[Rfam]
RNA sequence: UUGAAGUUCCCGCUAUUAAUGGAUAAGGUUUUUCCGCUAACAUAUAAGAAUUUUUGAAGAAAAGAAAGCGAGAAAUACCCAAUAUCUUGUUAUACCAACAAAUUGGGUAUUUCUUUACUUU
Number, nucleotide and partner (000 for none) at each position: 001u000002u000003g000004a000005a000006g000007u000008u023009c022010c021011c000012g000013c000014u000015a000016u000017u000018a000019a000020u000021g010022g009023a008024u000025a000026a000027g000028g000029u000030u000031u000032u000033u000034c000035c000036g000037c000038u000039a000040a000041c000042a000043u000044a000045u000046a000047a000048g000049a000050a000051u000052u000053u000054u000055u000056g000057a000058a000059g000060a000061a000062a000063a000064g000065a121066a120067a119068g118069c000070g115071a114072g113073a112074a111075a110076u109077a108078c107079c000080c105081a104082a103083u000084a000085u100086c000087u098088u097089g000090u000091u000092a000093u000094a000095c000096c000097a088098a087099c000100a085101a000102a000103u082104u081105g080106g000107g078108u077109a076110u075111u074112u073113c072114u071115u070116u000117a000118c068119u067120u066121u065
RNA: Plastid-psbA-1 3UTR RNA
Organism: Brachypodium distachyon